[Rfam]
RNA sequence: AUAGCAGGCUGCAAUUGCAGUGCUUCCUGCUGUGGGAGUACUGCCAUUCCCCUGCUCAGAGUAACCCUGUUAACGCUGCCUUUGGUUUCACCUCUGUGUCGGUGAGGCUGUUUGUCCUUAACAUGAACACGA
Numbered sequence: 001a002u003a004g005c006a007g008g009c010u011g012c013a014a015u016u017g018c019a020g021u022g023c024u025u026c027c028u029g030c031u032g033u034g035g036g037a038g039u040a041c042u043g044c045c046a047u048u049c050c051c052c053u054g055c056u057c058a059g060a061g062u063a064a065c066c067c068u069g070u071u072a073a074c075g076c077u078g079c080c081u082u083u084g085g086u087u088u089c090a091c092c093u094c095u096g097u098g099u100c101g102g103u104g105a106g107g108c109u110g111u112u113u114g115u116c117c118u119u120a121a122c123a124u125g126a127a128c129a130c131g132a
Base pairs, nucleotide, nucleotide: 003056004055005054006053007052008051018043019042020041021040022039023038024037025036026035066125068123069122070121071120072119073118075116083110084109085108086107087106088105089104090103091102092101
RNA: Small nucleolar RNA SNORA69
Organism: Coturnix japonica